Shown here is a 91-nucleotide RNA sequence from Paeniglutamicibacter cryotolerans, a member of the family "SAM riboswitch aptamer (S box leader)".

RNA sequence: CAACCAUCCCGAGCGGCCGAGAGAUCUGGCUCUACGACGCCGCAGCAACCACCCUGACCGGGGCCGGUGCUACAGCCAGGACCGAUGGAGA
Numbered sequence: 001c002a003a004c005c006a007u008c009c010c011g012a013g014c015g016g017c018c019g020a021g022a023g024a025u026c027u028g029g030c031u032c033u034a035c036g037a038c039g040c041c042g043c044a045g046c047a048a049c050c051a052c053c054c055u056g057a058c059c060g061g062g063g064c065c066g067g068u069g070c071u072a073c074a075g076c077c078a079g080g081a082c083c084g085a086u087g088g089a090g091a
Base pairs, nucleotide, nucleotide: 004088005087006086007085008084013043014042015041016040017039021032022031023030026079027078028077029076044071045070046069047068049067050066052062053061054060075083
Lineage of the source: Bacteria > Actinomycetota > Micrococcales > Micrococcaceae > Paeniglutamicibacter.